[Rfam]
RNA sequence: ACAACUCAGGUCUGUGGUUGCAAGUCGAGGCCAGUUGCGGGCAAAACGAUCCACGUAAGCAAUCAAAGUAUUGUGAGCACGGCGCAGCUUAGAAGUAAGUCCUGCCGCAAAGGCGAGAGGGGUAGUAGUGGGGAGCUCUGAAAAGCUUAUGAGCGAACCCUCCAGCAGGCGAGUGUGGGGGCGAAAACCAGUCAGCUGAGUUGU
Numbered sequence: 001a002c003a004a005c006u007c008a009g010g011u012c013u014g015u016g017g018u019u020g021c022a023a024g025u026c027g028a029g030g031c032c033a034g035u036u037g038c039g040g041g042c043a044a045a046a047c048g049a050u051c052c053a054c055g056u057a058a059g060c061a062a063u064c065a066a067a068g069u070a071u072u073g074u075g076a077g078c079a080c081g082g083c084g085c086a087g088c089u090u091a092g093a094a095g096u097a098a099g100u101c102c103u104g105c106c107g108c109a110a111a112g113g114c115g116a117g118a119g120g121g122g123u124a125g126u127a128g129u130g131g132g133g134a135g136c137u138c139u140g141a142a143a144a145g146c147u148u149a150u151g152a153g154c155g156a157a158c159c160c161u162c163c164a165g166c167a168g169g170c171g172a173g174u175g176u177g178g179g180g181g182c183g184a185a186a187a188c189c190a191g192u193c194a195g196c197u198g199a200g201u202u203g204u
Base pairs, nucleotide, nucleotide: 001204002203003202004201005200006199007198008197009196012195013194014193015190016189017188018187019186028176030174031041033089034088035087036086037085038084039083050082051081058074061071080183101169102168103167104166105165106115107114108113119162120161121160122159128154129153134147135146136145
A member of the RNA family "raiA RNA", 204 nucleotides long.
Rfam's curators put it in the seed alignment.
The base pairs follow the family's consensus structure, which is taken from published work.
The family's RNA type in Rfam is riboswitch.